[Rfam]
RNA: Streptomyces-metK RNA
Organism: Streptomyces sp. WAC00469
RNA sequence: GCGAGACAGGUGGGCCCGUGGCGGAAGUCGACCGAUAAACUGUCCACGGUCGGCGCCGGGUGCAGCCCCGUGCCGACCGUCAAUGAUCAGCCAGCAGCCGCUGCAACCCCAGGGAG
Numbered sequence: 001g002c003g004a005g006a007c008a009g010g011u012g013g014g015c016c017c018g019u020g021g022c023g024g025a026a027g028u029c030g031a032c033c034g035a036u037a038a039a040c041u042g043u044c045c046a047c048g049g050u051c052g053g054c055g056c057c058g059g060g061u062g063c064a065g066c067c068c069c070g071u072g073c074c075g076a077c078c079g080u081c082a083a084u085g086a087u088c089a090g091c092c093a094g095c096a097g098c099c100g101c102u103g104c105a106a107c108c109c110c111a112g113g114g115a116g
Base pairs, nucleotide, nucleotide: 048078049077050076051075052074053073056072057070058069059068060067092103093102094101095100